[Rfam]
RNA sequence: AUUCCGGUUGAUCCUGCCGGAGGCCAUUGCUAUCGGAGUCCGAUUUAGCCAUGCUAGUUGUGCGGGUUUAGACCCGCAGCGGAAAGCUCAGUAACACGUGGCCAAGCUACCCUGUGGACGGGAAUACUCUCGGGAAACUGAGGCUAAUCCCCGAUAACGCUUUGCUCCUGGAAGGGGCAAAGCCGGAAACGCUCCGGCGCCACAGGAUGCGGCUGCGGUCGAUUAGGUAGACGGUGGGGUAACGGCCCACCGUGCCCAUAAUCGGUACGGGUUGUGAGAGCAAGAGCCCGGAGACGGAAUCUGAGACAAGAUUCCGGGCCCUACGGGGCGCAGCAGGCGCGAAACCUUUACACUGUACGAAAGUGCGAUAAGGGGACUCCGAGUGUGAAGGCAUAGAGCCUUCACUUUUGUACACCGUAAGGUGGUGCACGAAUAAGGACUGGGCAAGACCGGUGCCAGCCGCCGCGGUAAUACCGGCAGUCCGAGUGAUGGCCGAUCUUAUUG
Number, nucleotide and partner (000 for none) at each position: 001a000002u000003u000004c020005c019006g018007g017008u016009u000010g000011a000012u000013c000014c000015u000016g008017c007018c006019g005020g004021a000022g494023g493024c492025c491026a490027u489028u488029g487030c486031u485032a000033u382034c381035g380036g379037a378038g377039u376040c375041c374042g340043a000044u000045u000046u000047a000048g338049c337050c336051a000052u335053g334054c333055u000056a000057g080058u079059u078060g000061u000062g077063c076064g075065g074066g073067u072068u000069u000070a000071g000072a067073c066074c065075c064076g063077c062078a059079g058080c057081g000082g000083a000084a000085a000086g000087c293088u292089c291090a000091g000092u000093a000094a000095c000096a000097c217098g216099u215100g214101g213102c212103c211104a000105a000106g210107c209108u000109a000110c000111c206112c205113u204114g203115u202116g201117g200118a000119c153120g152121g151122g150123a000124a000125u000126a000127c000128u143129c142130u141131c140132g139133g138134g000135a000136a000137a000138c133139u132140g131141a130142g129143g128144c000145u000146a000147a000148u000149c000150c122151c121152c120153g119154a000155u000156a000157a000158c000159g183160c182161u181162u180163u179164g178165c177166u000167c176168c175169u000170g000171g000172a000173a000174g000175g168176g167177g165178c164179a163180a162181a161182g160183c159184c000185g000186g000187a000188a000189a000190c000191g198192c197193u000194c000195c000196g000197g192198c191199g000200c117201c116202a115203c114204a113205g112206g111207a000208u000209g107210c106211g103212g102213c101214u100215g099216c098217g097218g000219u265220c264221g263222a000223u000224u000225a000226g256227g255228u254229a000230g000231a253232c252233g251234g250235u249236g248237g247238g246239g000240u000241a000242a000243c000244g000245g000246c238247c237248c236249a235250c234251c233252g232253u231254g228255c227256c226257c000258a000259u000260a000261a000262u000263c221264g220265g219266u000267a000268c290269g289270g288271g287272u283273u282274g281275u280276g000277a000278g000279a000280g275281c274282a273283a272284g000285a000286g000287c271288c270289c269290g268291g089292a088293g087294a000295c316296g315297g314298a313299a312300u311301c000302u000303g000304a000305g000306a000307c000308a000309a000310g000311a300312u299313u298314c297315c296316g295317g000318g329319c328320c327321c326322u000323a000324c000325g000326g321327g320328g319329c318330g000331c000332a000333g054334c053335a052336g050337g049338c048339g000340c042341g000342a000343a000344a000345c000346c372347u000348u371349u370350a369351c000352a000353c000354u367355g366356u365357a364358c363359g000360a000361a000362a000363g358364u357365g356366c355367g354368a000369u350370a349371a348372g346373g000374g041375g040376a039377c038378u037379c036380c035381g034382a033383g000384u000385g405386u404387g403388a402389a401390g400391g399392c398393a000394u000395a000396g000397a000398g392399c391400c390401u389402u388403c387404a386405c385406u000407u000408u000409u000410g430411u429412a000413c427414a426415c425416c424417g000418u000419a000420a000421g000422g000423u000424g416425g415426u414427g413428c000429a411430c410431g000432a000433a000434u000435a000436a000437g483438g482439a481440c480441u479442g478443g000444g000445c000446a000447a000448g000449a000450c477451c476452g475453g474454u000455g000456c000457c000458a000459g466460c465461c000462g000463c000464c000465g460466c459467g000468g000469u000470a000471a000472u000473a000474c453475c452476g451477g450478c442479a441480g440481u439482c438483c437484g000485a031486g030487u029488g028489a027490u026491g025492g024493c023494c022495g000496a000497u000498c000499u000500u000501a000502u000503u000504g000
RNA: Archaeal small subunit ribosomal RNA, nucleotides 1 to 504